[Rfam]
RNA sequence: CGUGAAGCCGCUGACUCGCGAAAUCCUCUCGUAGCUACGAGAGGAUCUCGCGAGUCAGCGGCUACACG
Number, nucleotide and partner (000 for none) at each position: 001c068002g067003u066004g000005a000006a063007g062008c061009c060010g059011c058012u057013g056014a055015c054016u053017c052018g051019c050020g049021a048022a000023a046024u045025c044026c043027u042028c041029u000030c000031g000032u000033a000034g000035c000036u000037a000038c000039g000040a000041g028042a027043g026044g025045a024046u023047c000048u021049c020050g019051c018052g017053a016054g015055u014056c013057a012058g011059c010060g009061g008062c007063u006064a000065c000066a003067c002068g001
A member of the RNA family "mir-9456 microRNA precursor family" from Nematostella vectensis, 68 nucleotides long. The family's consensus secondary structure was predicted with RNAalifold.